About this RNA
The family of this 53-nucleotide RNA from Gossypium armourianum is "Plastid-atpF group II-D1 intron". Plastid atpF is a non-coding RNA (ncRNA) recognised in plastids. It has been reported in the intron group II-D1 region of ATP synthase (atpF) genes. Pairs were carried over by alignment from the consensus structure, which was predicted with LocARNA. The literature on the family includes a 2023 paper in Plant Commun by Richter et al., "Retrograde signaling in plants: A critical review focusing on the GUN pathway and beyond".

RNA sequence: AAAAAUCUUUUCGAUAUAAAACACUCAUGUCAAUAAAACCAUUUGAGCUCUUU
Numbered sequence: 001a002a003a004a005a006u007c008u009u010u011u012c013g014a015u016a017u018a019a020a021a022c023a024c025u026c027a028u029g030u031c032a033a034u035a036a037a038a039c040c041a042u043u044u045g046a047g048c049u050c051u052u053u
Base pairs, nucleotide, nucleotide: 011033013031014030015029016028017027